[Rfam]
RNA sequence: GGGUCCGGUGGCCCACUGAACUCCCAAAGAACCGGGACAAAGAACUACCGCCCACCCACCUUCCCGGCCCGUUUCACCCGUCAGGGUGACCAGCUUGCAGGCGGAGGACACGGACGGUUACGUUCGCCGCGACAACCGUAAAAGCUACGGCCCCCGGCCGGGACGGCAAUCCCGAACGAGGGCCUGACCGAUCAGGAAGCAAACCCUUCCCG
Numbered sequence: 001g002g003g004u005c006c007g008g009u010g011g012c013c014c015a016c017u018g019a020a021c022u023c024c025c026a027a028a029g030a031a032c033c034g035g036g037a038c039a040a041a042g043a044a045c046u047a048c049c050g051c052c053c054a055c056c057c058a059c060c061u062u063c064c065c066g067g068c069c070c071g072u073u074u075c076a077c078c079c080g081u082c083a084g085g086g087u088g089a090c091c092a093g094c095u096u097g098c099a100g101g102c103g104g105a106g107g108a109c110a111c112g113g114a115c116g117g118u119u120a121c122g123u124u125c126g127c128c129g130c131g132a133c134a135a136c137c138g139u140a141a142a143a144g145c146u147a148c149g150g151c152c153c154c155c156g157g158c159c160g161g162g163a164c165g166g167c168a169a170u171c172c173c174g175a176a177c178g179a180g181g182g183c184c185u186g187a188c189c190g191a192u193c194a195g196g197a198a199g200c201a202a203a204c205c206c207u208u209c210c211c212g
Base pairs, nucleotide, nucleotide: 010069011068012067013066074089075088076087077086078085079084100128101127102126103125104124149184150183151182152181153180155178156177160173161172162171163170195210196209197208198207199206
Streptomyces sRNA 4677: a 212-nucleotide RNA from Streptomyces sp. TS71-3. Located in the intergenic region between anti-sigma factor SCO4677 gene and a putative regulatory protein gene SCO4676. scr4677 expression requires the SCO4677 activity and scr4677 sRNA itself seem to affect the levels of the SCO4676-associated transcripts. Rfam 15.1 lists 563 matches to the family in 285 species. NCBI's taxonomy places the organism under Bacteria, Actinomycetota, Actinomycetes, Kitasatosporales, Streptomyces. A reference for the family is Hindra et al. (2014), "Complex intra-operonic dynamics mediated by a small RNA in Streptomyces coelicolor", PLoS One.